[Rfam]
RNA sequence: UGAGACAAGUAGAAGCACCCGCUUCUCACCUGAUCGACGCUCGUUUGCAGUCGGCUGGUCCUAAACUUUUCAAUAUAUUAUUGGAGACGUGUGGGUGCAUGUAUGUACCGACACUUUUUAUUUGCG
Numbered sequence: 001u002g003a004g005a006c007a008a009g010u011a012g013a014a015g016c017a018c019c020c021g022c023u024u025c026u027c028a029c030c031u032g033a034u035c036g037a038c039g040c041u042c043g044u045u046u047g048c049a050g051u052c053g054g055c056u057g058g059u060c061c062u063a064a065a066c067u068u069u070u071c072a073a074u075a076u077a078u079u080a081u082u083g084g085a086g087a088c089g090u091g092u093g094g095g096u097g098c099a100u101g102u103a104u105g106u107a108c109c110g111a112c113a114c115u116u117u118u119u120a121u122u123u124g125c126g
Base pairs, nucleotide, nucleotide: 011026012025013024014023015022016021028059029058030057036052037051038050039048040047090113091112092111094109095108096107097106098105099104